[Rfam]
This 87-nucleotide sequence from Triticum aestivum belongs to the Rfam family "MIR1120/MIR1122 microRNA precursor family". Rfam 15.1 lists 44,765 matches to the family in 8 species. A search with the family's covariance model found it, with a score of 91 bits. Lineage of the source: Eukaryota > Streptophyta > commelinids > Poales > Triticum.
RNA sequence: CUAUUCCCUCCGUCCCAUAAUAUAAGAACGUUUUUGAAACUAGUCUAGUAUUAAAAACGUUCUUAUAUUAUGGAACGGAGGGAGUAC
Number, nucleotide and partner (000 for none) at each position: 001c000002u000003a085004u084005u083006c000007c081008c080009u079010c078011c077012g000013u075014c000015c073016c072017a071018u000019a069020a068021u067022a066023u065024a064025a063026g062027a061028a060029c059030g058031u057032u056033u055034u054035u053036g052037a051038a000039a049040c048041u047042a000043g000044u000045c000046u000047a041048g040049u039050a000051u037052u036053a035054a034055a033056a032057a031058c030059g029060u028061u027062c026063u025064u024065a023066u022067a021068u020069u019070a000071u017072g016073g015074a000075a013076c000077g011078g010079a009080g008081g007082g000083a005084g004085u003086a000087c000